[Rfam]
RNA sequence: AGCAAAUGAGGAGAAAUUAUUUCAACUGAAAUUGAUGUUGAUAUAUACCAAAUGGUCUUCAAAGUUCUCUGAUUGUU
Numbered sequence: 001a002g003c004a005a006a007u008g009a010g011g012a013g014a015a016a017u018u019a020u021u022u023c024a025a026c027u028g029a030a031a032u033u034g035a036u037g038u039u040g041a042u043a044u045a046u047a048c049c050a051a052a053u054g055g056u057c058u059u060c061a062a063a064g065u066u067c068u069c070u071g072a073u074u075g076u077u
Stems, first nucleotide, its partner, number of pairs: 001077005
A member of the RNA family "Small nucleolar RNA R160" from Rhynchospora breviuscula, 77 nucleotides long. Lineage of the source: Eukaryota > Embryophyta > Spermatophyta > Magnoliopsida > Rhynchospora. Rfam 15.1 lists 799 matches to the family in 221 species. The match comes from Rfam's covariance-model search (65 bits). By type it is a C/D-box small nucleolar RNA. From the family's description: snoR160 is a C/D box small nucleolar RNA, which acts as a methylation guide for 25S ribosomal RNA in plants. snoR160 has been alternatively named snoZ270 in rice. The pairing is the family consensus, mapped onto this sequence.